[Rfam]
RNA sequence: AAGCUAGAUGAUGAGAAUGGUUUUUAUAUAUCUCACGAUGGUCAUCUGAGGCACCCUUGGUGUCUAUAUUGAUGCAUAUCCAAUCUCUGAUGGCU
Numbered sequence: 001a002a003g004c005u006a007g008a009u010g011a012u013g014a015g016a017a018u019g020g021u022u023u024u025u026a027u028a029u030a031u032c033u034c035a036c037g038a039u040g041g042u043c044a045u046c047u048g049a050g051g052c053a054c055c056c057u058u059g060g061u062g063u064c065u066a067u068a069u070u071g072a073u074g075c076a077u078a079u080c081c082a083a084u085c086u087c088u089g090a091u092g093g094c095u
Stems, first nucleotide, its partner, number of pairs: 001095001004092001052062003
Shown here is a 95-nucleotide sequence from Phoenix dactylifera, a member of the family "Small nucleolar RNA Z161/Z228". Lineage of the source: Eukaryota > Streptophyta > Spermatophyta > Petrosaviidae > Phoenix. For this family Rfam cites "The high diversity of snoRNAs in plants: identification and comparative study of 120 snoRNA genes from Oryza sativa" (Chen et al., Nucleic Acids Res, 2003). Gene Ontology terms of the family: RNA processing and nucleolus.